The record is a 157-nucleotide sequence, which matches "DUF2800 RNA" in Rfam. The family's RNA type in Rfam is cis-regulatory element.
[Rfam]
RNA sequence: CCGCCGAAUGUCGCAUCGGCUGAUCACCGAUGGCUCAACGGCUUCCGGCGGACAGGUUAAUAAAGUAGCUGCCUUUUGAGCGGGUUAGCUGCAGACCGAAACGGAGAGAUUCGUUUGGACUGCGGUAAGUUUCCCAUACCCGUUUUGCGGCAGCGCC
Number, nucleotide and partner (000 for none) at each position: 001c051002c050003g049004c048005c047006g000007a000008a044009u000010g042011u041012c040013g039014c032015a031016u030017c029018g028019g000020c000021u000022g000023a000024u000025c000026a000027c000028c018029g017030a016031u015032g014033g081034c080035u079036c078037a077038a076039c013040g012041g011042c010043u000044u008045c000046c000047g005048g004049c003050g002051g001052a000053c000054a000055g000056g000057u000058u000059a000060a000061u000062a000063a000064a000065g000066u153067a000068g151069c150070u149071g148072c147073c000074u000075u000076u038077u037078g036079a035080g034081c033082g000083g000084g000085u000086u000087a000088g126089c125090u124091g123092c122093a000094g000095a000096c000097c000098g000099a000100a000101a114102c113103g112104g111105a110106g000107a000108g000109a000110u105111u104112c103113g102114u101115u000116u000117g000118g000119a000120c000121u000122g092123c091124g090125g089126u088127a000128a000129g000130u000131u000132u000133c000134c000135c000136a000137u000138a000139c000140c000141c000142g000143u000144u000145u000146u000147g072148c071149g070150g069151c068152a000153g066154c000155g000156c000157c000

The sequence is in the family's curated seed alignment.